The family of this 119-nucleotide sequence is "RT-4 RNA". Rfam's curators put it in the seed alignment. The family's RNA type in Rfam is small RNA.
RNA sequence: UACACCGCAGAUGGUUGAAAUACCAAUAUAUCCGCCUUUAAAGGUUUUGGUGAGUGGAAAUUAUUCCGAUCAGGAGCUGCAAGUAGUAAGAAAUGUUCGAAAGUGGCGAGGAGAUAGAA
Numbered sequence: 001u002a003c004a005c006c007g008c009a010g011a012u013g014g015u016u017g018a019a020a021u022a023c024c025a026a027u028a029u030a031u032c033c034g035c036c037u038u039u040a041a042a043g044g045u046u047u048u049g050g051u052g053a054g055u056g057g058a059a060a061u062u063a064u065u066c067c068g069a070u071c072a073g074g075a076g077c078u079g080c081a082a083g084u085a086g087u088a089a090g091a092a093a094u095g096u097u098c099g100a101a102a103g104u105g106g107c108g109a110g111g112a113g114a115u116a117g118a119a
Stems, first nucleotide, its partner, number of pairs: 003056003010027001012025004032050002035044003065112003076107005086098001089094001